[Rfam]
RNA: ASpks TB sRNA
Organism: Virgisporangium ochraceum
RNA sequence: CUUGAGCGCGCCCAGCCGCACCGGCCGGUCGGCCGGCCGGUCCUGACCGUAGGUGGCGAUGAUCGCCUGCGCCUC
Numbered sequence: 001c002u003u004g005a006g007c008g009c010g011c012c013c014a015g016c017c018g019c020a021c022c023g024g025c026c027g028g029u030c031g032g033c034c035g036g037c038c039g040g041u042c043c044u045g046a047c048c049g050u051a052g053g054u055g056g057c058g059a060u061g062a063u064c065g066c067c068u069g070c071g072c073c074u075c
Stems, first nucleotide, its partner, number of pairs: 015025003032070002038065002044059001047056003